Notes
The family of this 59-nucleotide sequence from Georgenia soli is "msiK RNA". The family's consensus secondary structure is taken from published work. Rfam classes the family as a cis-regulatory element.

[Rfam]
RNA sequence: UCUCGGCACUCUUCACUACGGAUCGUCCGGCACGUACCUGCCGGUGAAGGGAUGUACAU
Numbered sequence: 001u002c003u004c005g006g007c008a009c010u011c012u013u014c015a016c017u018a019c020g021g022a023u024c025g026u027c028c029g030g031c032a033c034g035u036a037c038c039u040g041c042c043g044g045u046g047a048a049g050g051g052a053u054g055u056a057c058a059u
Stems, first nucleotide, its partner, number of pairs: 009051007027044006